A member of the RNA family "Yersinia sRNA 155(RyfD)" from Buttiauxella agrestis, 140 nucleotides long. For this family Rfam cites "Transcriptomic profiling of Yersinia pseudotuberculosis reveals reprogramming of the Crp regulon by temperature and uncovers Crp as a master regulator of small RNAs" (Nuss et al., PLoS Genet, 2015). Rfam describes the family as follows. The sRNA was identified by and is confirmed to have a stable secondary structure by using genome-wide structure probing at different temperatures. The function is unknown. By type it is a small RNA. NCBI's taxonomy places the organism under Bacteria, Pseudomonadati, Gammaproteobacteria, Enterobacteriaceae, Buttiauxella agrestis. The base pairs follow the family's consensus structure.
[Rfam]
RNA sequence: CAAGACGAUCCAACGCAGGUAACAAACGCUUCAAAUAUUUCAGGUCAUUAACCUUGAAUAAUUGAGGGAUGACCUCAUUUAAUCUCCAGUAGCAAAUUUGACCUGUUUAUGGGAGGAGUUAUGCGUCUGGAUCGUCUUAC
Number, nucleotide and partner (000 for none) at each position: 001c000002a138003a137004g136005a135006c134007g133008a132009u131010c130011c129012a128013a000014c000015g126016c125017a000018g000019g122020u000021a120022a119023c118024a000025a000026a040027c000028g038029c000030u037031u000032c000033a000034a000035a000036u000037a030038u028039u000040u026041c000042a000043g000044g000045u000046c000047a000048u000049u000050a000051a000052c067053c066054u065055u064056g063057a062058a000059u000060a000061a000062u057063u056064g055065a054066g053067g052068g079069a078070u077071g076072a000073c000074c000075u000076c071077a070078u069079u068080u000081a000082a000083u116084c115085u114086c113087c112088a000089g110090u109091a108092g000093c000094a000095a000096a000097u000098u000099u000100g000101a000102c000103c000104u000105g000106u000107u000108u091109a090110u089111g000112g087113g086114a085115g084116g083117a000118g023119u022120u021121a000122u019123g000124c000125g016126u015127c000128u012129g011130g010131a009132u008133c007134g006135u005136c004137u003138u002139a000140c000